[Rfam]
RNA: SAM riboswitch aptamer (S box leader)
RNA sequence: UUCUUAUCCAGAGAGGUGGAGGGAACUGGCCCAAUGAAACCCAGCAACCAUUAGAUAUUAUAUCUAACAGGUGCUAAUUCCAGCAAUGUUCAAUCAUUGCAAGAUAAGAA
Numbered sequence: 001u002u003c004u005u006a007u008c009c010a011g012a013g014a015g016g017u018g019g020a021g022g023g024a025a026c027u028g029g030c031c032c033a034a035u036g037a038a039a040c041c042c043a044g045c046a047a048c049c050a051u052u053a054g055a056u057a058u059u060a061u062a063u064c065u066a067a068c069a070g071g072u073g074c075u076a077a078u079u080c081c082a083g084c085a086a087u088g089u090u091c092a093a094u095c096a097u098u099g100c101a102a103g104a105u106a107a108g109a110a
Stems, first nucleotide, its partner, number of pairs: 001110008013042001015041003021032003026083004043075004048071002051067004079102001084099005